[Rfam]
This 117-nucleotide RNA sequence from Hevea brasiliensis belongs to the Rfam family "Small nucleolar RNA snoR104". Rfam 15.1 lists 612 matches to the family in 228 species. Lineage of the source: Eukaryota > Embryophyta > Euphyllophyta > Malpighiales > Hevea. Gene Ontology terms of the family: nucleolus and RNA processing. The family's consensus secondary structure was predicted with WAR.
RNA sequence: GGGGAGCAUCCGAAAGCUGAGAUGCUACCUGAUACAAUCUUCCUAGAGAAAACUCUGAAGUUUCCUGCUUGUAAUACUUGAGCAAGUUCUGCAAGUCUCAAAUCUUCAGAGAUAUAU
Numbered sequence: 001g002g003g004g005a006g007c008a009u010c011c012g013a014a015a016g017c018u019g020a021g022a023u024g025c026u027a028c029c030u031g032a033u034a035c036a037a038u039c040u041u042c043c044u045a046g047a048g049a050a051a052a053c054u055c056u057g058a059a060g061u062u063u064c065c066u067g068c069u070u071g072u073a074a075u076a077c078u079u080g081a082g083c084a085a086g087u088u089c090u091g092c093a094a095g096u097c098u099c100a101a102a103u104c105u106u107c108a109g110a111g112a113u114a115u116a117u
Stems, first nucleotide, its partner, number of pairs: 001030003005026006054110003067096007076087003